[Rfam]
RNA sequence: GCAAAAAUUAACUCUCCGUUAAUCUUAACACGGUUUAAUCAAUUCAUAUCCGGUUUGGCCGGAUUUUGACUGAAGUGGUUUUACCACUUUGUCUGACACCUCCCUGUUAAAACUCCUAGAGUCGCUUAUGCGGCUCUUUUUUU
Numbered sequence: 001g002c003a004a005a006a007a008u009u010a011a012c013u014c015u016c017c018g019u020u021a022a023u024c025u026u027a028a029c030a031c032g033g034u035u036u037a038a039u040c041a042a043u044u045c046a047u048a049u050c051c052g053g054u055u056u057g058g059c060c061g062g063a064u065u066u067u068g069a070c071u072g073a074a075g076u077g078g079u080u081u082u083a084c085c086a087c088u089u090u091g092u093c094u095g096a097c098a099c100c101u102c103c104c105u106g107u108u109a110a111a112a113c114u115c116c117u118a119g120a121g122u123c124g125c126u127u128a129u130g131c132g133g134c135u136c137u138u139u140u141u142u143u
Stems, first nucleotide, its partner, number of pairs: 001045001003043001006013001020037003024033002049063004073089006095108004118137008

The family of this 143-nucleotide RNA from Paenochrobactrum gallinarii is "Alphaproteobacterial sRNA BjrC1505".
The family's RNA type in Rfam is small RNA.
For this family Rfam cites "Small RNAs of the Bradyrhizobium/Rhodopseudomonas lineage and their analysis" (Madhugiri et al., RNA Biol, 2012).